Annotation: A member of the RNA family "t44 RNA" from Oceanospirillum multiglobuliferum, 105 nucleotides long. From the family's description: This family consists of a number of bacterial RNA genes of between 135 and 170 bases in length. The t44 gene has been identified in several species of enteric bacteria but homologs have also been identified in Pseudomonas and Coxiella species. The t44 gene is found between the map and rpsB genes in all species in the full alignment apart from Shigella flexneri. The function of this RNA is unknown. A search with the family's covariance model found it, with a score of 72 bits.
RNA sequence: CAAUUAAAUCCAAAACGACACACAUAUACCGACACGUAGCUCUGGGUGCCUAAGACAAACUUGGUUUGUGAUUAGGUUGGGUUAUGGGGUGUAUGGAGGUUUAAC
Numbered sequence: 001c002a003a004u005u006a007a008a009u010c011c012a013a014a015a016c017g018a019c020a021c022a023c024a025u026a027u028a029c030c031g032a033c034a035c036g037u038a039g040c041u042c043u044g045g046g047u048g049c050c051u052a053a054g055a056c057a058a059a060c061u062u063g064g065u066u067u068g069u070g071a072u073u074a075g076g077u078u079g080g081g082u083u084a085u086g087g088g089g090u091g092u093a094u095g096g097a098g099g100u101u102u103a104a105c
Base pairs, nucleotide, nucleotide: 023095024094025093026092027091028090029089030088035086036085037084038083039082040081041080042079048077049076050075051074052073